[Rfam]
Shown here is a 191-nucleotide RNA sequence from Anopheles gambiae, a member of the family "drz-agam-2-2 ribozyme".

RNA sequence: AUCAGCCUUCGUUCUGUAAACGGGGUUGGAUCCGACUCUCAUAGGCUCUCCAACCCAACUCCUACUCAAUACGUCCUCGUCGUACAGAACGGUAACAUGUUUUCCGAACAUCCGCGCUUGGGUAUACGAGUAUACACCUUACCCAACCCUCGCCAACGGGGAGGAUGGAAAACAUGGCUAAAUUGAGAGGG
Numbered sequence: 001a002u003c004a005g006c007c008u009u010c011g012u013u014c015u016g017u018a019a020a021c022g023g024g025g026u027u028g029g030a031u032c033c034g035a036c037u038c039u040c041a042u043a044g045g046c047u048c049u050c051c052a053a054c055c056c057a058a059c060u061c062c063u064a065c066u067c068a069a070u071a072c073g074u075c076c077u078c079g080u081c082g083u084a085c086a087g088a089a090c091g092g093u094a095a096c097a098u099g100u101u102u103u104c105c106g107a108a109c110a111u112c113c114g115c116g117c118u119u120g121g122g123u124a125u126a127c128g129a130g131u132a133u134a135c136a137c138c139u140u141a142c143c144c145a146a147c148c149c150u151c152g153c154c155a156a157c158g159g160g161g162a163g164g165a166u167g168g169a170a171a172a173c174a175u176g177g178c179u180a181a182a183u184u185g186a187g188a189g190g191g
Base pairs, nucleotide, nucleotide: 011090012089013088014087015086016085017084023056024055025054026053027052028051029050030049032045033044060191061190062189063188065187066186067185068184069183070182071083072082073081075092076091096176097175098174099173100172101171102170103169104168105167110166111165112164113163118146119145120144121143122142123141148161149160150159151158152157
On this family, see Webb et al., Science 2009: "Widespread occurrence of self-cleaving ribozymes". The sequence is in the family's curated seed alignment. Rfam links the family to the GO term catalytic activity.